This 90-nucleotide sequence from Salvia splendens belongs to the Rfam family "Small nucleolar RNA R16". The family's consensus secondary structure was predicted with PFOLD.
RNA sequence: AAUGGCGGAUGAAGAUUAUUGAAUUCUUAUCCUACACACUGAAUUCAAUUUUGUGUUGAUUACUUACUCCGCUUAUUAUCUGACGCUAUC
Dot-bracket structure: ..(((((............................................................................)))))..